[Rfam]
RNA sequence: CAGUCCGCCACGUGGGACACCUCCACCGGGGCCGUUGCCGCGCGGUUACCCUGACCGCGUGCACCCUGGACACAGAAGGGGUGUAAAGCCGACAGCCGUCGCAUUCCAGGGAGCUCAGUCAUG
Numbered sequence: 001c002a003g004u005c006c007g008c009c010a011c012g013u014g015g016g017a018c019a020c021c022u023c024c025a026c027c028g029g030g031g032c033c034g035u036u037g038c039c040g041c042g043c044g045g046u047u048a049c050c051c052u053g054a055c056c057g058c059g060u061g062c063a064c065c066c067u068g069g070a071c072a073c074a075g076a077a078g079g080g081g082u083g084u085a086a087a088g089c090c091g092a093c094a095g096c097c098g099u100c101g102c103a104u105u106c107c108a109g110g111g112a113g114c115u116c117a118g119u120c121a122u123g
Base pairs, nucleotide, nucleotide: 060085061084062083063082065079066078067077088102089101091100092099093098
Rfam assigns this 123-nucleotide RNA from Streptomyces sp. Mg1 to the family "Streptomyces-metH RNA". The base pairs follow the family's consensus structure, which is taken from published work. It is annotated as a small RNA. Rfam's curators put it in the seed alignment.